About this RNA:
Rfam assigns this 198-nucleotide sequence from Capsicum annuum to the family "U2 spliceosomal RNA". Clan: U2 clan. A reference for the family is Zwieb (1997), "The uRNA database", Nucleic Acids Res. Gene Ontology terms of the family: pre-mRNA branch point binding, mRNA branch site recognition and U2 snRNP. Rfam describes the family as follows. U2 is a small nuclear RNA (snRNA) component of the spliceosome (involved in pre-mRNA splicing). Complementary binding between U2 snRNA (in an area lying towards the 5' end but 3' to hairpin I) and the branchpoint sequence (BPS) of the intron results the bulging out of an unpaired adenosine, on the BPS, which initiates a nucleophilic attack at the intronic 5' splice site, thus starting the first of two transesterification reactions that mediate splicing. A search with the family's covariance model found it, with a score of 130 bits.
[Rfam]
RNA sequence: AUACCUUUCUCGGCCUUCCGGCUAAAAUCAAGUGUAGUAUAUUUGUUCUUAUCAGUUUAAUAUCUGAUAUGUGAGUCAUUGACUCACACGAUAAUAACUCUAUUGUUUAAGGGGGAAGGUCCACCAUGGUAGCUUGCUAUUGGUACCUUGAAGUGUCGCCUUGGUGUUGCACUAGUGCCUUGGCCUGGCACACCCCAC
Numbered sequence: 001a002u003a004c005c006u007u008u009c010u011c012g013g014c015c016u017u018c019c020g021g022c023u024a025a026a027a028u029c030a031a032g033u034g035u036a037g038u039a040u041a042u043u044u045g046u047u048c049u050u051a052u053c054a055g056u057u058u059a060a061u062a063u064c065u066g067a068u069a070u071g072u073g074a075g076u077c078a079u080u081g082a083c084u085c086a087c088a089c090g091a092u093a094a095u096a097a098c099u100c101u102a103u104u105g106u107u108u109a110a111g112g113g114g115g116a117a118g119g120u121c122c123a124c125c126a127u128g129g130u131a132g133c134u135u136g137c138u139a140u141u142g143g144u145a146c147c148u149u150g151a152a153g154u155g156u157c158g159c160c161u162u163g164g165u166g167u168u169g170c171a172c173u174a175g176u177g178c179c180u181u182g183g184c185c186u187g188g189c190a191c192a193c194c195c196c197a198c
Stems, first nucleotide, its partner, number of pairs: 008027001010025001012023004050069006071087007116149005122143001129140004153191006160182001163179003